[Rfam]
Rfam assigns this 197-nucleotide sequence from Lactonifactor longoviformis to the family "Group II catalytic intron D1-D4-3".
Taxonomically the source falls in Lactonifactor longoviformis (Bacteria, Bacillati, Bacillota, Eubacteriales).
A search with the family's covariance model found it, with a score of 138 bits.
Rfam's curators write: Group II introns are found in rRNA, tRNA and mRNA of organelles in fungi, plants and protists, and also in mRNA in bacteria.
RNA sequence: UCCAUUGUGAGGUGGAAUCCGAAGGAAGCCGGAUAUGGGGAACAUACGAACCCAUGGGCAAAUCUCUGGUCUGACGAACAGAAACCACAUAAGAGGCUAUGCAUGAGGAUAAGGCUGCAUGACAAGUCGAAGUCCAAUAACUACCCGGAAUCAUGUAUGGUAGAUGUGGCAGAUGGAUGGAGAGAAAGAAACGUGUG
Numbered sequence: 001u002c003c004a005u006u007g008u009g010a011g012g013u014g015g016a017a018u019c020c021g022a023a024g025g026a027a028g029c030c031g032g033a034u035a036u037g038g039g040g041a042a043c044a045u046a047c048g049a050a051c052c053c054a055u056g057g058g059c060a061a062a063u064c065u066c067u068g069g070u071c072u073g074a075c076g077a078a079c080a081g082a083a084a085c086c087a088c089a090u091a092a093g094a095g096g097c098u099a100u101g102c103a104u105g106a107g108g109a110u111a112a113g114g115c116u117g118c119a120u121g122a123c124a125a126g127u128c129g130a131a132g133u134c135c136a137a138u139a140a141c142u143a144c145c146c147g148g149a150a151u152c153a154u155g156u157a158u159g160g161u162a163g164a165u166g167u168g169g170c171a172g173a174u175g176g177a178u179g180g181a182g183a184g185a186a187a188g189a190a191a192c193g194u195g196u197g
Stems, first nucleotide, its partner, number of pairs: 001016006051197001053195003059188001063183006069174005085169006096161003100157007107135004113128004